[Rfam]
RNA sequence: GAGAAGCUGACCGCCAUGAUCCGUACCCACCGUCUACUAGGCCUACUACUAAACGCAUCUUAUGUGCGCGGUACGCUGGUGGACGGGGUUCAAAGCUGAUUCAGCCCAUCAUCUGCAAAACCCGCGCUACUGCGCGGGUUUUUUU
Numbered sequence: 001g002a003g004a005a006g007c008u009g010a011c012c013g014c015c016a017u018g019a020u021c022c023g024u025a026c027c028c029a030c031c032g033u034c035u036a037c038u039a040g041g042c043c044u045a046c047u048a049c050u051a052a053a054c055g056c057a058u059c060u061u062a063u064g065u066g067c068g069c070g071g072u073a074c075g076c077u078g079g080u081g082g083a084c085g086g087g088g089u090u091c092a093a094a095g096c097u098g099a100u101u102c103a104g105c106c107c108a109u110c111a112u113c114u115g116c117a118a119a120a121c122c123c124g125c126g127c128u129a130c131u132g133c134g135c136g137g138g139u140u141u142u143u144u145u
Stems, first nucleotide, its partner, number of pairs: 006105005017099001019097001021095001030086010047073004054068004117142011

Shown here is a 145-nucleotide sequence from Serratia fonticola, a member of the family "Leucine operon leader". The family's consensus secondary structure is taken from published work. The literature on the family includes a 1982 paper in Annu Rev Genet by Kolter and Yanofsky, "Attenuation in amino acid biosynthetic operons". Gene Ontology term of the family: leucine biosynthetic process. The family's RNA type in Rfam is cis-regulatory leader. The organism belongs to Serratia, within Bacteria. A search with the family's covariance model found it, with a score of 95 bits. Rfam's curators write: At least 6 amino acid operons are known to be regulated by attenuation. In each a leader sequence of 150-200 bp is found upstream of the first gene in the operon.